RNA sequence: CAUAUCAGAUGAUGAAAUUGGAAAUAUCUUAGGACAACUUCCUACUCAGUAAUUAUUGCUGUGGAUGAGAAUAAAUUUUCCAUGCUGAUGAUGUG
Numbered sequence: 001c002a003u004a005u006c007a008g009a010u011g012a013u014g015a016a017a018u019u020g021g022a023a024a025u026a027u028c029u030u031a032g033g034a035c036a037a038c039u040u041c042c043u044a045c046u047c048a049g050u051a052a053u054u055a056u057u058g059c060u061g062u063g064g065a066u067g068a069g070a071a072u073a074a075a076u077u078u079u080c081c082a083u084g085c086u087g088a089u090g091a092u093g094u095g
Base pairs, nucleotide, nucleotide: 001095002094003093004092005091006090007089042049043048

The record is a 95-nucleotide RNA sequence from Lupinus albus, which matches "Small nucleolar RNA snoR31/Z110/Z27" in Rfam. Taxonomically the source falls in Lupinus (Eukaryota, Streptophytina, Tracheophyta, Genisteae). Rfam's curators write: This family contains several related snoRNAs including R31, Z27 and Z110. Rfam links the family to the GO terms RNA processing and nucleolus. It is annotated as a C/D-box small nucleolar RNA.